[Rfam]
RNA: LOOT RNA
RNA sequence: AGCCUAAACCAUUGGAAACUAUGGCAUGGCGCAAUAAAAACCUAAGCAGUAAAAACGGUCUCGUGACUGGUACUUAUUGCUUAGGUCGGUGCUCGAAAGAGUGUCGGGUUGCCCGAAAGGGUUACC
Numbered sequence: 001a002g003c004c005u006a007a008a009c010c011a012u013u014g015g016a017a018a019c020u021a022u023g024g025c026a027u028g029g030c031g032c033a034a035u036a037a038a039a040a041c042c043u044a045a046g047c048a049g050u051a052a053a054a055a056c057g058g059u060c061u062c063g064u065g066a067c068u069g070g071u072a073c074u075u076a077u078u079g080c081u082u083a084g085g086u087c088g089g090u091g092c093u094c095g096a097a098a099g100a101g102u103g104u105c106g107g108g109u110u111g112c113c114c115g116a117a118a119g120g121g122u123u124a125c126c
Base pairs, nucleotide, nucleotide: 002030003029004028009024010023011022012021014019041085042084043083044082045081046080047079048078049077050076051075054071056069057068058067059066060065087106088105089104090103091102092101093100094099107126108125109124111122112121113120114119